[Rfam]
This 109-nucleotide RNA from Sorghum bicolor belongs to the Rfam family "MIR5565 microRNA precursor family". Gene Ontology terms of the family: miRNA-mediated post-transcriptional gene silencing and RISC complex.
RNA sequence: AAUGUUGGAUUUAUUUCAAUCUAUGUGUGUUGGUGUGGAUUGAGGUAAAAUUUAGUUCAAAUUCCAUCCCAGUCCACCUCAACAUAUAUGGAUUGAUGUGAAUCCUACU
Numbered sequence: 001a002a003u004g005u006u007g008g009a010u011u012u013a014u015u016u017c018a019a020u021c022u023a024u025g026u027g028u029g030u031u032g033g034u035g036u037g038g039a040u041u042g043a044g045g046u047a048a049a050a051u052u053u054a055g056u057u058c059a060a061a062u063u064c065c066a067u068c069c070c071a072g073u074c075c076a077c078c079u080c081a082a083c084a085u086a087u088a089u090g091g092a093u094u095g096a097u098g099u100g101a102a103u104c105c106u107a108c109u
Base pairs, nucleotide, nucleotide: 004108005107007105008104009103010102011101012100013099014098016096017095018094019093020092021091022090023089024088025087026086027085028084029083030082031081032080035077036076037075038074039073040072041071042070045067046066

A search with the family's covariance model found it, with a score of 90 bits. Taxonomically the source falls in Sorghum (Eukaryota, Mesangiospermae, Andropogonodae, Andropogoneae). Pairs were carried over by alignment from the consensus structure, which was predicted with RNAalifold.